[Rfam]
Source information
Actinobacteria sRNA Ms_IGR-5: a 236-nucleotide RNA sequence from Streptomyces xinghaiensis. For this family Rfam cites "Identification of small RNAs in Mycobacterium smegmatis using heterologous Hfq" (Li et al., RNA, 2013). It scores 82 bits against the family's covariance model. By type it is a small RNA.
RNA sequence: ACACGAGAAGGGAGGUGGUUCGGCAGAUGUCAGAAAUCCGGACGCGUGAGGUGACUGCGGGCUAGCAGUCCGUCGUCGCGCUCUGCGCACCGCCGGACCAGCACGUGAGAGAUGCGUGCAGCCGGCCCAAUUCCCAGCAGUCACCCGACCCGCGAGCCGCCGGUACGUCCGACCGGCCCCCUUGCCGCCGAGCCGUUGGCCCGGCGCGGGGGGAAGAGGCUCGCGGGUCGUCUGCG
Numbered sequence: 001a002c003a004c005g006a007g008a009a010g011g012g013a014g015g016u017g018g019u020u021c022g023g024c025a026g027a028u029g030u031c032a033g034a035a036a037u038c039c040g041g042a043c044g045c046g047u048g049a050g051g052u053g054a055c056u057g058c059g060g061g062c063u064a065g066c067a068g069u070c071c072g073u074c075g076u077c078g079c080g081c082u083c084u085g086c087g088c089a090c091c092g093c094c095g096g097a098c099c100a101g102c103a104c105g106u107g108a109g110a111g112a113u114g115c116g117u118g119c120a121g122c123c124g125g126c127c128c129a130a131u132u133c134c135c136a137g138c139a140g141u142c143a144c145c146c147g148a149c150c151c152g153c154g155a156g157c158c159g160c161c162g163g164u165a166c167g168u169c170c171g172a173c174c175g176g177c178c179c180c181c182u183u184g185c186c187g188c189c190g191a192g193c194c195g196u197u198g199g200c201c202c203g204g205c206g207c208g209g210g211g212g213g214a215a216g217a218g219g220c221u222c223g224c225g226g227g228u229c230g231u232c233u234g235c236g
Stems, first nucleotide, its partner, number of pairs: 015058005060127004065122002068119002071116001074114004146230013159177006